The family of this 51-nucleotide RNA from Methanococcoides burtonii is "eL15-Euryarchaeota ribosomal protein leader". The family's consensus secondary structure is taken from published work. The literature on the family includes a 2020 paper in BMC Microbiol by Eckert and Weinberg, "Discovery of 20 novel ribosomal leader candidates in bacteria and archaea". It is one of the family's seed sequences.
RNA sequence: CGGGAUACUAUCCCGUGGGAAUGUGGCUGAAAACUUCAGCUGAACCGUGAA
Numbered sequence: 001c002g003g004g005a006u007a008c009u010a011u012c013c014c015g016u017g018g019g020a021a022u023g024u025g026g027c028u029g030a031a032a033a034c035u036u037c038a039g040c041u042g043a044a045c046c047g048u049g050a051a
Base pairs, nucleotide, nucleotide: 001015002014003013004012005011018046019045025041026040027039028038029037
Dot-bracket structure: (((((.....)))))..((.....(((((.......)))))...)).....